Record summary
A member of the RNA family "Ruegeria cis2 sRNA" from Sulfitobacter sp. SK011, 153 nucleotides long. Taxonomically the source falls in Sulfitobacter (Bacteria, Pseudomonadati, Alphaproteobacteria, Rhodobacterales). Rfam links the family to the GO term regulation of gene expression. On this family, see Rivers et al., Front Microbiol 2016: "Experimental Identification of Small Non-Coding RNAs in the Model Marine Bacterium Ruegeria pomeroyi DSS-3".

RNA sequence: AUUGCUGUAGCGUGGAUUGUAAUUGAUGAAGGCAAAGCCGCGCGCCUGAUCAAUGGCGUGAAACAGCGGGUUCCAGUCAAACAUCGCCAGCAUGAAGCUUGGCAAAGUAUUGGCCAGGAACAUUUUGCCAGACGCAAUCAUAUUGGCGCGCUG
Numbered sequence: 001a002u003u004g005c006u007g008u009a010g011c012g013u014g015g016a017u018u019g020u021a022a023u024u025g026a027u028g029a030a031g032g033c034a035a036a037g038c039c040g041c042g043c044g045c046c047u048g049a050u051c052a053a054u055g056g057c058g059u060g061a062a063a064c065a066g067c068g069g070g071u072u073c074c075a076g077u078c079a080a081a082c083a084u085c086g087c088c089a090g091c092a093u094g095a096a097g098c099u100u101g102g103c104a105a106a107g108u109a110u111u112g113g114c115c116a117g118g119a120a121c122a123u124u125u126u127g128c129c130a131g132a133c134g135c136a137a138u139c140a141u142a143u144u145g146g147c148g149c150g151c152u153g
Stems, first nucleotide, its partner, number of pairs: 002035003006032001008030001013025003037057004042051001064153005070082003086147005092141003098134001100131001102129001103127006110119002